[Rfam]
RNA: Bacterial small signal recognition particle RNA
Organism: Cycloclasticus sp. symbiont of Bathymodiolus heckerae
RNA sequence: UGUCGGUCCCCUCGCAACGUGAAAUUGUGAACUCCGCCAGGCCCGGAAGGGAGCAACGGCAGCGAUGGAAUCGUGUGCCGGGGUGUGGCUGGCAUGA
Numbered sequence: 001u002g003u004c005g006g007u008c009c010c011c012u013c014g015c016a017a018c019g020u021g022a023a024a025u026u027g028u029g030a031a032c033u034c035c036g037c038c039a040g041g042c043c044c045g046g047a048a049g050g051g052a053g054c055a056a057c058g059g060c061a062g063c064g065a066u067g068g069a070a071u072c073g074u075g076u077g078c079c080g081g082g083g084u085g086u087g088g089c090u091g092g093c094a095u096g097a
Base pairs, nucleotide, nucleotide: 004091005090006089007088008087010083011082012081013080014079015075017074018073019072024066025065026064027063028062034059035058036057042051043050044049